[Rfam]
RNA sequence: AGCUGAUGCAGAUGGUGGUCUUUUUCCUCCCAGUGCCACCGCAGCAGCUGUUCCCCUCUGGAGGUUUAUACCUUCACACCUAAAGGGCCCGGCUUUUCCCGUGGCCCUUUUUU
Numbered sequence: 001a002g003c004u005g006a007u008g009c010a011g012a013u014g015g016u017g018g019u020c021u022u023u024u025u026c027c028u029c030c031c032a033g034u035g036c037c038a039c040c041g042c043a044g045c046a047g048c049u050g051u052u053c054c055c056c057u058c059u060g061g062a063g064g065u066u067u068a069u070a071c072c073u074u075c076a077c078a079c080c081u082a083a084a085g086g087g088c089c090c091g092g093c094u095u096u097u098c099c100c101g102u103g104g105c106c107c108u109u110u111u112u113u
Stems, first nucleotide, its partner, number of pairs: 001049005007043003015039004059076007084108006090101003

The family of this 113-nucleotide RNA sequence from Rhizobium giardinii is "Alphaproteobacterial ar15".
It scores 111 bits against the family's covariance model.
On this family, see del Val et al., RNA Biol 2012: "A survey of sRNA families in alpha-proteobacteria".
Its family is annotated with protein binding in the Gene Ontology.
Taxonomically the source falls in Rhizobium (Bacteria, Pseudomonadati, Pseudomonadota, Rhizobiaceae).
The family is grouped with related families in Rfam's "suhB sRNA clan".